[Rfam]
RNA: Small nucleolar RNA SNORD18
RNA sequence: GGGAUGUGAUGAAGAACCUUUGGUCCGUGUUUCUGAUCACCCCUUGAUGAGUAAAACACUCCUAAAGAAUCUGAUCCC
Numbered sequence: 001g002g003g004a005u006g007u008g009a010u011g012a013a014g015a016a017c018c019u020u021u022g023g024u025c026c027g028u029g030u031u032u033c034u035g036a037u038c039a040c041c042c043c044u045u046g047a048u049g050a051g052u053a054a055a056a057c058a059c060u061c062c063u064a065a066a067g068a069a070u071c072u073g074a075u076c077c078c
Stems, first nucleotide, its partner, number of pairs: 001078004